[Rfam]
RNA sequence: GACUCAUUUGUAGGAACAAAGAGAAGCAGAUCUAUUCUAUAUCCAAUUAGUACCAAUACACAACGGGG
Numbered sequence: 001g002a003c004u005c006a007u008u009u010g011u012a013g014g015a016a017c018a019a020a021g022a023g024a025a026g027c028a029g030a031u032c033u034a035u036u037c038u039a040u041a042u043c044c045a046a047u048u049a050g051u052a053c054c055a056a057u058a059c060a061c062a063a064c065g066g067g068g
Base pairs, nucleotide, nucleotide: 003021004020007016008015009014042067043066044065050059051058052057
Dot-bracket structure: ..((..(((....)))...))....................(((.....(((....))).....))).
Background:
Plastid-clpP 5UTR RNA: a 68-nucleotide RNA from Eucalyptus grandis. A reference for the family is Richter et al. (2023), "Retrograde signaling in plants: A critical review focusing on the GUN pathway and beyond", Plant Commun. Plastid clpP is a non-coding RNA (ncRNA) recognised in plastids. It was found in the prime untranslated region (5UTR) of a protease complex subunit (clpP) in plastids, suggesting a posible cis-regulatory function. Pairs were carried over by alignment from the consensus structure, which was predicted with LocARNA. Taxonomically the source falls in Eucalyptus (Eukaryota, Viridiplantae, Euphyllophyta, Spermatophyta).